[Rfam]
RNA sequence: AAGUGUGAAUGAUGAGAUUAUAUAAAAUUCACUGUUAUCCCUGUCUGUGAAAUCUGUGUUGAACUUUUGUGAUCUGACACACCG
Numbered sequence: 001a002a003g004u005g006u007g008a009a010u011g012a013u014g015a016g017a018u019u020a021u022a023u024a025a026a027a028u029u030c031a032c033u034g035u036u037a038u039c040c041c042u043g044u045c046u047g048u049g050a051a052a053u054c055u056g057u058g059u060u061g062a063a064c065u066u067u068u069g070u071g072a073u074c075u076g077a078c079a080c081a082c083c084g
Stems, first nucleotide, its partner, number of pairs: 003082005
This 84-nucleotide RNA from Chenopodium quinoa belongs to the Rfam family "Small nucleolar RNA R38". Rfam 15.1 lists 2,295 matches to the family in 1,305 species. It scores 51 bits against the family's covariance model. snoR38 is a C/D box small nucleolar RNA conserved across yeast, human, Arabidopsis and rice. It is encoded in the intron of elongation factor-1 gamma in both pombe and cerevisiae. snoR38 guides the methylation of 2'-O-ribose sites in 28S rRNA. The literature on the family includes a 1995 paper in Trends Biochem Sci by Bachellerie et al., "Antisense snoRNAs: a family of nucleolar RNAs with long complementarities to rRNA".